[Rfam]
Rfam assigns this 116-nucleotide RNA from Megalops atlanticus to the family "U5 spliceosomal RNA". The match comes from Rfam's covariance-model search (84 bits). On this family, see Zwieb, Nucleic Acids Res 1997: "The uRNA database". From the family's description: U5 RNA is a component of both types of known spliceosome. The precise function of this molecule is unknown, though it is known that the 5' loop is required for splice site selection and p220 binding, and that both the 3' stem-loop and the Sm site are important for Sm protein binding and cap methylation. Lineage of the source: Eukaryota > Teleostomi > Actinopteri > Elopocephala > Megalops. The family has 180 seed sequences and 28,527 matches in Rfam 15.1.
RNA sequence: AGCGACAGGUUUCUCUUCAGAUCGUAUGAAUCUUUCGCCUUUUACUAAAGAUUUCCGUGGAGAGGAACAUUCAUGAGAAUUAACUAAUUUUUUGUCUCCCUGCCUUAGGGUGGGGC
Numbered sequence: 001a002g003c004g005a006c007a008g009g010u011u012u013c014u015c016u017u018c019a020g021a022u023c024g025u026a027u028g029a030a031u032c033u034u035u036c037g038c039c040u041u042u043u044a045c046u047a048a049a050g051a052u053u054u055c056c057g058u059g060g061a062g063a064g065g066a067a068c069a070u071u072c073a074u075g076a077g078a079a080u081u082a083a084c085u086a087a088u089u090u091u092u093u094g095u096c097u098c099c100c101u102g103c104c105u106u107a108g109g110g111u112g113g114g115g116c
Stems, first nucleotide, its partner, number of pairs: 006075001009068011028054008097115004